The record is a 115-nucleotide RNA sequence from Virgibacillus phasianinus, which matches "ylbH leader" in Rfam. NCBI's taxonomy places the organism under Bacteria, Bacillota, Bacilli, Caryophanales, Virgibacillus. This family is a putative regulatory RNA structure that is found upstream of the ylbH gene in B. subtilis and related low GC Gram-positive bacteria. Pairs were carried over by alignment from the consensus structure.
RNA sequence: AAAAAAAUAAACCUGCAGAAAUCAUUCUGCAGGUCUUUUUGUUUUUUAAAACAAAAAGUAAAGGGAGAGGAGAAAUCAGAAGAAGAACUUAUGGGGAAGUAAGUCUUCUUCUAGA
Numbered sequence: 001a002a003a004a005a006a007a008u009a010a011a012c013c014u015g016c017a018g019a020a021a022u023c024a025u026u027c028u029g030c031a032g033g034u035c036u037u038u039u040u041g042u043u044u045u046u047u048a049a050a051a052c053a054a055a056a057a058g059u060a061a062a063g064g065g066a067g068a069g070g071a072g073a074a075a076u077c078a079g080a081a082g083a084a085g086a087a088c089u090u091a092u093g094g095g096g097a098a099g100u101a102a103g104u105c106u107u108c109u110u111c112u113a114g115a
Stems, first nucleotide, its partner, number of pairs: 011034009035065005040053005079110002082108004087104005